[Rfam]
RNA sequence: UCCUUAUCUUUUAAAAGUUUCAAGUUGGUCCCUUAUCUUUUUUUUAGGUUUCAAGUUGGUCCAUUCCGUCAAAUUUUGUACUGUUACCGUUAAAUGUGGACACGUGUCAUAUGUCCAAGUGUGCCACGUGUCCAAAUUUAAUAGAAAUAGUUAAAAAAUUGACGGAAGGGACCAACUUGAAACCUAAAAUAAAGAUAAGGGACCAACUUGAAACUUUUAAAAGAUAAGGGA
Numbered sequence: 001u002c003c004u005u006a007u008c009u010u011u012u013a014a015a016a017g018u019u020u021c022a023a024g025u026u027g028g029u030c031c032c033u034u035a036u037c038u039u040u041u042u043u044u045u046a047g048g049u050u051u052c053a054a055g056u057u058g059g060u061c062c063a064u065u066c067c068g069u070c071a072a073a074u075u076u077u078g079u080a081c082u083g084u085u086a087c088c089g090u091u092a093a094a095u096g097u098g099g100a101c102a103c104g105u106g107u108c109a110u111a112u113g114u115c116c117a118a119g120u121g122u123g124c125c126a127c128g129u130g131u132c133c134a135a136a137u138u139u140a141a142u143a144g145a146a147a148u149a150g151u152u153a154a155a156a157a158a159u160u161g162a163c164g165g166a167a168g169g170g171a172c173c174a175a176c177u178u179g180a181a182a183c184c185u186a187a188a189a190u191a192a193a194g195a196u197a198a199g200g201g202a203c204c205a206a207c208u209u210g211a212a213a214c215u216u217u218u219a220a221a222a223g224a225u226a227a228g229g230g231a
Base pairs, nucleotide, nucleotide: 002229003228004227005226006225007224008223023208024207025206027204028203029202031200032199033198034197035196036195037194038193039192040191042189043188045186046185047184
A member of the RNA family "MIR2655 microRNA precursor family" from Trifolium subterraneum, 231 nucleotides long. The family's consensus secondary structure was predicted with RNAalifold. The source organism's lineage runs through Eukaryota, Embryophyta, Mesangiospermae, rosids and Trifolium. It scores 128 bits against the family's covariance model.